[Rfam]
RNA sequence: CAUAUAGAACAAUGAGUAACUCGUAUAAUUGCGGGAAUUGGCUCGCAAGUUUCUACCUAAUCACCGGAAAUGAUUAGACUACGAGUGAGGCUACCUUUUUA
Numbered sequence: 001c002a003u004a005u006a007g008a009a010c011a012a013u014g015a016g017u018a019a020c021u022c023g024u025a026u027a028a029u030u031g032c033g034g035g036a037a038u039u040g041g042c043u044c045g046c047a048a049g050u051u052u053c054u055a056c057c058u059a060a061u062c063a064c065c066g067g068a069a070a071u072g073a074u075u076a077g078a079c080u081a082c083g084a085g086u087g088a089g090g091c092u093a094c095c096u097u098u099u100u101a
Base pairs, nucleotide, nucleotide: 019086020085021084022083023082024081025080029048030047031046032045033044034043035042057077058076059075060074061073062072063071